Background: The record is a 67-nucleotide RNA from Scleropages formosus, which matches "Small nucleolar RNA SNORD42" in Rfam. snoRNA U42 is found in intron 3 of the ribosomal protein L23a (RPL23a) gene in humans and is also present in mice. For this family Rfam cites "Purified box C/D snoRNPs are able to reproduce site-specific 2'-O-methylation of target RNA in vitro" (Galardi et al., Mol Cell Biol, 2002). The match comes from Rfam's covariance-model search (52 bits). The organism belongs to Scleropages, within Eukaryota. Rfam classes the family as a C/D-box small nucleolar RNA.

[Rfam]
RNA sequence: GUACAAAUGAUGAGAACUUUAAUAUACCUGAAUCACUUUGAUGCCUUCAAAGGAACCACUGAUGUAC
Number, nucleotide and partner (000 for none) at each position: 001g067002u066003a065004c064005a063006a000007a000008u000009g000010a000011u000012g000013a000014g000015a000016a000017c000018u000019u000020u000021a000022a000023u000024a000025u000026a000027c000028c000029u000030g000031a000032a000033u000034c000035a000036c000037u000038u000039u000040g000041a000042u000043g000044c000045c000046u000047u000048c000049a000050a000051a000052g000053g000054a000055a000056c000057c000058a000059c000060u000061g000062a000063u005064g004065u003066a002067c001